Notes
This 149-nucleotide sequence from Pontibacillus halophilus belongs to the Rfam family "FMN riboswitch aptamer (RFN element)". A search with the family's covariance model found it, with a score of 111 bits. The family's consensus secondary structure is taken from published work. For this family Rfam cites "Coenzyme recognition and gene regulation by a flavin mononucleotide riboswitch" (Serganov et al., Nature, 2009). Lineage of the source: Bacteria > Caryophanales > Bacillaceae > Pontibacillus > Pontibacillus halophilus.
RNA sequence: GUUUUCCUUCGGGGUCGGGUGAAAAUCCCAACCGGCGGUGAUGAAGCUUACACGCUUACGAGCCCGCGACCCGUAGCUACCUACUAGCUAUGGCUGAUUUGGUACCAAUCCAAAGCCGACGGUGAAAGUCCGGAUGGGAGAAGGAAAUG
Number, nucleotide and partner (000 for none) at each position: 001g000002u000003u147004u146005u145006c144007c143008u142009u141010c140011g000012g000013g000014g000015u000016c000017g029018g028019g027020u000021g000022a000023a000024a000025a000026u000027c019028c018029c017030a000031a129032c128033c118034g117035g067036c066037g065038g064039u000040g000041a000042u000043g000044a000045a000046g000047c000048u000049u000050a000051c000052a000053c000054g000055c000056u000057u000058a000059c000060g000061a000062g116063c115064c038065c037066g036067c035068g000069a000070c000071c093072c092073g000074u000075a000076g000077c000078u000079a000080c000081c000082u000083a000084c000085u000086a000087g000088c000089u000090a000091u000092g072093g071094c000095u000096g000097a000098u114099u113100u112101g111102g110103u000104a000105c000106c000107a000108a000109u000110c102111c101112a100113a099114a098115g063116c062117c034118g033119a000120c132121g131122g130123u000124g000125a000126a000127a000128g032129u031130c122131c121132g120133g000134a000135u000136g000137g000138g000139a000140g010141a009142a008143g007144g006145a005146a004147a003148u000149g000